[Rfam]
RNA sequence: GUCAAUCGGGUGACGCACUCCUCCUCCCAGCGAAGCCCGAUGCGAUUGGCAGCACUCCUCCUCCCAGUUGCCAAUCAAGAUAAGCCCGCCGGAUCUCCUCCCCCGGCGGGCUUUUUUU
Numbered sequence: 001g002u003c004a005a006u007c008g009g010g011u012g013a014c015g016c017a018c019u020c021c022u023c024c025u026c027c028c029a030g031c032g033a034a035g036c037c038c039g040a041u042g043c044g045a046u047u048g049g050c051a052g053c054a055c056u057c058c059u060c061c062u063c064c065c066a067g068u069u070g071c072c073a074a075u076c077a078a079g080a081u082a083a084g085c086c087c088g089c090c091g092g093a094u095c096u097c098c099u100c101c102c103c104c105g106g107c108g109g110g111c112u113u114u115u116u117u118u
Stems, first nucleotide, its partner, number of pairs: 007039005014032003044076010082113011

Alphaproteobacterial ar14: a 118-nucleotide RNA from Mycoplana dimorpha. Rfam classes the family as a small RNA. For this family Rfam cites "A conserved alpha-proteobacterial small RNA contributes to osmoadaptation and symbiotic efficiency of rhizobia on legume roots" (Robledo et al., Environ Microbiol, 2017). From the family's description: Smr14C2 was renamed NfeR1 (Nodule Formation Efficiency RNA) highly expressed in salt stress and during the symbiotic interaction on legume roots. Rfam 15.1 lists 784 matches to the family in 332 species.